This 75-nucleotide RNA sequence from Myotis davidii belongs to the Rfam family "mir-9223 microRNA precursor family". The match comes from Rfam's covariance-model search (86 bits).
[Rfam]
RNA sequence: AGCAGUUCUUGGGUGACGCACCUCAGAAUCGGGCUCCCUCCUCUCUGGUUCUGGGUGCGUCACCCGAGAACCACA
Dot-bracket structure: .(..(((((((((((((.(((((.(((((((((..........)))))))))))))).)))))))))))))..).